[Rfam]
RNA: FMN riboswitch aptamer (RFN element)
RNA sequence: GCGUGUUCUCAGGGCGGGGUGAAAUUCCCCACCGGCGGUAAGGGGCCACGCGCCCCAAGCCCGCGAGCGCCCCGGCCAAUCCGGGGGUCAGCAGAUCUGGUGCAACUCCAGAGCCGACGGUCAUAGUCCGGAUGGAAGAGAACGACC
Numbered sequence: 001g002c003g004u005g006u007u008c009u010c011a012g013g014g015c016g017g018g019g020u021g022a023a024a025u026u027c028c029c030c031a032c033c034g035g036c037g038g039u040a041a042g043g044g045g046c047c048a049c050g051c052g053c054c055c056c057a058a059g060c061c062c063g064c065g066a067g068c069g070c071c072c073c074g075g076c077c078a079a080u081c082c083g084g085g086g087g088u089c090a091g092c093a094g095a096u097c098u099g100g101u102g103c104a105a106c107u108c109c110a111g112a113g114c115c116g117a118c119g120g121u122c123a124u125a126g127u128c129c130g131g132a133u134g135g136a137a138g139a140g141a142a143c144g145a146c147c
Base pairs, nucleotide, nucleotide: 004144005143006142007141008140009139010138017029018028019027031127032126033116034115035064036063037062038061059114060113067092068091096112097111098110099109100108118130119129120128